Rfam assigns this 144-nucleotide RNA sequence from Dickeya dadantii to the family "Molybdenum/Tungsten riboswitch aptamer (Moco RNA motif)". Gene Ontology terms of the family: molybdenum ion binding, regulation of gene expression and tungstate binding.
[Rfam]
RNA sequence: CGGGAAAUCAAACUCCUAGCCCCGGAGCCUAAGUUCGCGCGCAAGCGAGGAUAAGGUUCCCUGGCCGUGGCCGAUGGUCACCAGGGUGCAGGGUAGAAAUGCCCGCAUCUCCCGUAUUUGGAAAGGUGUUUAUGGUGAGUCAAC
Numbered sequence: 001c002g003g004g005a006a007a008u009c010a011a012a013c014u015c016c017u018a019g020c021c022c023c024g025g026a027g028c029c030u031a032a033g034u035u036c037g038c039g040c041g042c043a044a045g046c047g048a049g050g051a052u053a054a055g056g057u058u059c060c061c062u063g064g065c066c067g068u069g070g071c072c073g074a075u076g077g078u079c080a081c082c083a084g085g086g087u088g089c090a091g092g093g094u095a096g097a098a099a100u101g102c103c104c105g106c107a108u109c110u111c112c113c114g115u116a117u118u119u120g121g122a123a124a125g126g127u128g129u130u131u132a133u134g135g136u137g138a139g140u141c142a143a144c
Base pairs, nucleotide, nucleotide: 011130012129013128015126016125019065020064021063024060025059026058027057028056029055033052034051035050036049067081068080069079070078071077084110085109086108087107088106089105091104092103093102094101095100111121112120
NCBI's taxonomy places the organism under Bacteria, Gammaproteobacteria, Enterobacterales, Dickeya, Dickeya dadantii.